Shown here is an 82-nucleotide RNA sequence, a member of the family "skipping-rope RNA". It is annotated as a small RNA. The base pairs follow the family's consensus structure, which is taken from published work.
RNA sequence: UAAAGAUGAGGAUAGAGAAUGUGUCACUAUCGCCCCUUGUAAAAGGUAGGAGAUGUGGGAAAUGGCAGACCCACCGUUUUUU
Numbered sequence: 001u002a003a004a005g006a007u008g009a010g011g012a013u014a015g016a017g018a019a020u021g022u023g024u025c026a027c028u029a030u031c032g033c034c035c036c037u038u039g040u041a042a043a044a045g046g047u048a049g050g051a052g053a054u055g056u057g058g059g060a061a062a063u064g065g066c067a068g069a070c071c072c073a074c075c076g077u078u079u080u081u082u
Stems, first nucleotide, its partner, number of pairs: 002081007011031005022067004033050001035046004055074005